[Rfam]
RNA sequence: GCCGAAGUGGUGGAAUGGCAGACACGUCGCACUCAAAAUGCGAUGCCGCGAGGCGUGUGGGUUCGAGUCCCACCUUCGGUA
Numbered sequence: 001g002c003c004g005a006a007g008u009g010g011u012g013g014a015a016u017g018g019c020a021g022a023c024a025c026g027u028c029g030c031a032c033u034c035a036a037a038a039u040g041c042g043a044u045g046c047c048g049c050g051a052g053g054c055g056u057g058u059g060g061g062u063u064c065g066a067g068u069c070c071c072a073c074c075u076u077c078g079g080u081a
Stems, first nucleotide, its partner, number of pairs: 001080007010025003027043005057073005
Dot-bracket structure: (((((((..(((..........))).(((((.......))))).............(((((.......)))))))))))).